[Rfam]
RNA: Makes More Granules Regulator RNA (mmgR)
RNA sequence: CUCCGUAGCCCUCCUUGGGCGUUUCCUCCCUUGACUUGGGCCGCUGGCGUUACCGGCGGCCCUUUUUUUUCGUCAU
Number, nucleotide and partner (000 for none) at each position: 001c000002u000003c000004c000005g000006u000007a000008g020009c019010c018011c017012u000013c000014c000015u000016u000017g011018g010019g009020c008021g000022u000023u000024u000025c000026c000027u000028c000029c000030c000031u000032u000033g000034a000035c000036u000037u000038g000039g061040g060041c059042c058043g057044c056045u055046g054047g053048c000049g000050u000051u000052a000053c047054c046055g045056g044057c043058g042059g041060c040061c039062c000063u000064u000065u000066u000067u000068u000069u000070u000071c000072g000073u000074c000075a000076u000